[Rfam]
RNA: ALIL pseudoknot
Organism: Allobosea sp. TND4EK4
RNA sequence: GGCGCAUUUUGCCCAGGCGGAGCUCGACCGCCGACAACGGUCAUGAUCGCCUCAAUUCACGAUCACCGCGGGGCAUUUGGGGUCUAGCCGAUCUGCAAUUUCCUGGCGAUCGCCCCG
Number, nucleotide and partner (000 for none) at each position: 001g000002g000003c000004g000005c000006a000007u000008u000009u000010u000011g000012c000013c000014c000015a000016g032017g031018c030019g029020g028021a000022g000023c000024u000025c000026g000027a000028c020029c019030g018031c017032c016033g000034a000035c000036a000037a000038c000039g000040g000041u000042c000043a000044u000045g000046a000047u000048c000049g000050c000051c000052u000053c000054a000055a000056u000057u000058c000059a000060c000061g000062a000063u000064c000065a000066c000067c000068g000069c000070g000071g000072g000073g000074c000075a000076u000077u000078u117079g116080g115081g114082g113083u000084c000085u000086a000087g000088c000089c112090g111091a000092u109093c108094u000095g000096c105097a104098a000099u000100u000101u000102c000103c000104u097105g096106g000107c000108g093109a092110u000111c090112g089113c082114c081115c080116c079117g078